[Rfam]
RNA sequence: AGUCAGAAGAUGGGGGCCAUAGCAGGAGCAUUCACUUCACGGGCCCUGUCAGAUUCUCUGAAUCUGUGAAUGCUGCU
Numbered sequence: 001a002g003u004c005a006g007a008a009g010a011u012g013g014g015g016g017c018c019a020u021a022g023c024a025g026g027a028g029c030a031u032u033c034a035c036u037u038c039a040c041g042g043g044c045c046c047u048g049u050c051a052g053a054u055u056c057u058c059u060g061a062a063u064c065u066g067u068g069a070a071u072g073c074u075g076c077u
Base pairs, nucleotide, nucleotide: 013046014045015044017042018041021077022076023075024074025073027071028040050066051065052064053063054062055061056060